[Rfam]
RNA sequence: UGGUGACCUGAGGCUUCCUGGCUGUCACUCUGUCCCAGGCCCUCCUGGCCCGCGGGGCGCAGCCUGAGUCCCAGUAAAGUCUGUUGCGUCUUGACCC
Numbered sequence: 001u002g003g004u005g006a007c008c009u010g011a012g013g014c015u016u017c018c019u020g021g022c023u024g025u026c027a028c029u030c031u032g033u034c035c036c037a038g039g040c041c042c043u044c045c046u047g048g049c050c051c052g053c054g055g056g057g058c059g060c061a062g063c064c065u066g067a068g069u070c071c072c073a074g075u076a077a078a079g080u081c082u083g084u085u086g087c088g089u090c091u092u093g094a095c096c097c
Stems, first nucleotide, its partner, number of pairs: 002096003005090003009086001011082006021075004027069004032064001034062001039058005